[Rfam]
RNA sequence: AGCGGGAUUUACAAACAUGAUUACCCCGGUGAAGAUAGGCUUUUCAACCUUGCCGGGAUACACUGAAUUGAGUUAAAGCUUUUCGGGAUACUGGAAAGUGUAGGCUUUUUGCUUGAAGCAAUUCAAGCAAAGAAGACAGCAAAGCUGGCAACAAAGUGGUGUAGUAUAUCAUCAUAAGGACGUCAAAAGUAGAAUCCUUGUGGCUGACGAAUAAUAAACGCUUGCGGUGCAAGAAUAACCUGUUUGUGUUCGUGGUGUGAAAGACUACAAACAAAACAGGAAUUUCAUUAAGUCGGCUUGCCUUGAAUCCGGGAAACCGGAGUAUAACACAAGAAAUUCGUUAAAGUAGCGGUAUGGCAAAACAAAAUUUUUUUUGCAAAUCAAAAAAAAUUCCGAAAGAACCGUGAAAUUUGCAGGUUAAAUUCGCUCCCUGUCCGUGCUUGACAGCGGUAAGAAGCCAAGGGUCGCACCCGGAAGCUCGGACUUAUCGUCACGGUGACUGAAUGUGACUGCGGGUAUGAUGAAUAAAGAGAAGUCUUAAUCAUGUUUGUUUUUUGGA
Numbered sequence: 001a002g003c004g005g006g007a008u009u010u011a012c013a014a015a016c017a018u019g020a021u022u023a024c025c026c027c028g029g030u031g032a033a034g035a036u037a038g039g040c041u042u043u044u045c046a047a048c049c050u051u052g053c054c055g056g057g058a059u060a061c062a063c064u065g066a067a068u069u070g071a072g073u074u075a076a077a078g079c080u081u082u083u084c085g086g087g088a089u090a091c092u093g094g095a096a097a098g099u100g101u102a103g104g105c106u107u108u109u110u111g112c113u114u115g116a117a118g119c120a121a122u123u124c125a126a127g128c129a130a131a132g133a134a135g136a137c138a139g140c141a142a143a144g145c146u147g148g149c150a151a152c153a154a155a156g157u158g159g160u161g162u163a164g165u166a167u168a169u170c171a172u173c174a175u176a177a178g179g180a181c182g183u184c185a186a187a188a189g190u191a192g193a194a195u196c197c198u199u200g201u202g203g204c205u206g207a208c209g210a211a212u213a214a215u216a217a218a219c220g221c222u223u224g225c226g227g228u229g230c231a232a233g234a235a236u237a238a239c240c241u242g243u244u245u246g247u248g249u250u251c252g253u254g255g256u257g258u259g260a261a262a263g264a265c266u267a268c269a270a271a272c273a274a275a276a277c278a279g280g281a282a283u284u285u286c287a288u289u290a291a292g293u294c295g296g297c298u299u300g301c302c303u304u305g306a307a308u309c310c311g312g313g314a315a316a317c318c319g320g321a322g323u324a325u326a327a328c329a330c331a332a333g334a335a336a337u338u339c340g341u342u343a344a345a346g347u348a349g350c351g352g353u354a355u356g357g358c359a360a361a362a363c364a365a366a367a368u369u370u371u372u373u374u375u376g377c378a379a380a381u382c383a384a385a386a387a388a389a390a391u392u393c394c395g396a397a398a399g400a401a402c403c404g405u406g407a408a409a410u411u412u413g414c415a416g417g418u419u420a421a422a423u424u425c426g427c428u429c430c431c432u433g434u435c436c437g438u439g440c441u442u443g444a445c446a447g448c449g450g451u452a453a454g455a456a457g458c459c460a461a462g463g464g465u466c467g468c469a470c471c472c473g474g475a476a477g478c479u480c481g482g483a484c485u486u487a488u489c490g491u492c493a494c495g496g497u498g499a500c501u502g503a504a505u506g507u508g509a510c511u512g513c514g515g516g517u518a519u520g521a522u523g524a525a526u527a528a529a530g531a532g533a534a535g536u537c538u539u540a541a542u543c544a545u546g547u548u549u550g551u552u553u554u555u556u557g558g559a
Base pairs, nucleotide, nucleotide: 007556011552014549015548022541025057026056027055028054029053037050038049039048041046059163060162061161062160063159064158071106072105073104074103076101078099079098080097081096082095083094084093085092086091107132108131109130110129111128112127113126114125115124116123117122135149137147138146139145169540182511188507189501192339193338194337195336197333198332199331200330201329202328203297204296205295206294207293208292221233222232223231224230239280240279241278242277243276244275248272249271250270252268253267254266258287259286260285261284298360299359300358301357302356308321309320310319311318312317343410349405350404351403352402353401392483393482394481395480416432417431436495437494438493447492450489453486454485457479462472463471464470528539529538530537531536
A member of the RNA family "ROOL RNA", 559 nucleotides long. Rfam classes the family as a small RNA. Rfam's curators put it in the seed alignment.